[Rfam]
RNA sequence: GCAGACUCACUCUGUGCCUGACUGCAAUCUUCAGUCAAGGGACUUUUUCAGUCUGCUAGAGUAAUGGUCCAGGGUGUUGAGAACUCUUCUUUCCUUGUAGAAGACUUGCAGUUCUUGGAACAUAAUU
Numbered sequence: 001g002c003a004g005a006c007u008c009a010c011u012c013u014g015u016g017c018c019u020g021a022c023u024g025c026a027a028u029c030u031u032c033a034g035u036c037a038a039g040g041g042a043c044u045u046u047u048u049c050a051g052u053c054u055g056c057u058a059g060a061g062u063a064a065u066g067g068u069c070c071a072g073g074g075u076g077u078u079g080a081g082a083a084c085u086c087u088u089c090u091u092u093c094c095u096u097g098u099a100g101a102a103g104a105c106u107u108g109c110a111g112u113u114c115u116u117g118g119a120a121c122a123u124a125a126u127u
Stems, first nucleotide, its partner, number of pairs: 001056006014043002017040003020036001022034003068118002071115002074113001076112004081107001085104004
Rfam assigns this 127-nucleotide RNA sequence from Pelodiscus sinensis to the family "Small nucleolar RNA SNORA77".
ACA63 (SNORA77) is a member of the H/ACA class of snoRNAs that guide the sites of modification of uridines to pseudouridines. This snoRNA was identified by computational screening and its expression in mouse experimentally verified by Northern blot and primer extension analysis. ACA63 is proposed to guide the pseudouridylation of 18S rRNA U814.
It scores 63 bits against the family's covariance model.
By type it is an H/ACA-box small nucleolar RNA.
Rfam links the family to the GO terms nucleolus and RNA processing.